[Rfam]
RNA sequence: GCCUGGGCGCAGUGGUUUAUCGAUCCCUUCCCUGCCUUGUGUGCUGAUCUGAUCCAUGAAACCCGGUGGUUUCUUUUUUUUUCUCUUUCCCUAGUCGCAGCCAACCGACAACAACGCGGGAAUCGAUCGAUAAACCUCUGCAUCCAGCU
Numbered sequence: 001g002c003c004u005g006g007g008c009g010c011a012g013u014g015g016u017u018u019a020u021c022g023a024u025c026c027c028u029u030c031c032c033u034g035c036c037u038u039g040u041g042u043g044c045u046g047a048u049c050u051g052a053u054c055c056a057u058g059a060a061a062c063c064c065g066g067u068g069g070u071u072u073c074u075u076u077u078u079u080u081u082u083c084u085c086u087u088u089c090c091c092u093a094g095u096c097g098c099a100g101c102c103a104a105c106c107g108a109c110a111a112c113a114a115c116g117c118g119g120g121a122a123u124c125g126a127u128c129g130a131u132a133a134a135c136c137u138c139u140g141c142a143u144c145c146a147g148c149u
Stems, first nucleotide, its partner, number of pairs: 003147005009141004014136012028122005034117002037114003
Shown here is a 149-nucleotide RNA from Oryza brachyantha, a member of the family "MIR162_2 microRNA precursor family". Lineage of the source: Eukaryota > Streptophytina > Oryzeae > Oryzinae > Oryza. It scores 117 bits against the family's covariance model.